The family of this 205-nucleotide sequence from Clostridiales bacterium oral taxon 876 is "raiA RNA". Pairs were carried over by alignment from the consensus structure, which is taken from published work. By type it is a riboswitch. Lineage of the source: Bacteria > Bacillati > Bacillota > Clostridia > Clostridiales bacterium oral taxon 876.

[Rfam]
RNA sequence: UUAAGUUAGGUUUGUGGUUGAAAGUCGAUGCCAGUCGCAGGCGAAACGACCCACGUAAGUUAAACAAAGUUUUAAUGAGCAUGGUGCGGCUUAGAGGUAAGUCCUGCCGUUUUUAAACGAGAGGGUUAUUAGUGAGAGGUUGAUUCCGGGUAGCGAAAGCUCCAGCAGGCGAGUGUGGGGUCAAAGACCAGGUCAGCUGACUUAA
Numbered sequence: 001u002u003a004a005g006u007u008a009g010g011u012u013u014g015u016g017g018u019u020g021a022a023a024g025u026c027g028a029u030g031c032c033a034g035u036c037g038c039a040g041g042c043g044a045a046a047c048g049a050c051c052c053a054c055g056u057a058a059g060u061u062a063a064a065c066a067a068a069g070u071u072u073u074a075a076u077g078a079g080c081a082u083g084g085u086g087c088g089g090c091u092u093a094g095a096g097g098u099a100a101g102u103c104c105u106g107c108c109g110u111u112u113u114u115a116a117a118c119g120a121g122a123g124g125g126u127u128a129u130u131a132g133u134g135a136g137a138g139g140u141u142g143a144u145u146c147c148g149g150g151u152a153g154c155g156a157a158a159g160c161u162c163c164a165g166c167a168g169g170c171g172a173g174u175g176u177g178g179g180g181u182c183a184a185a186g187a188c189c190a191g192g193u194c195a196g197c198u199g200a201c202u203u204a205a
Stems, first nucleotide, its partner, number of pairs: 001205009012196003015190005028176003031041001033091007050084002058076001060074001062072003082183001103169005108119004123162004132154002138147002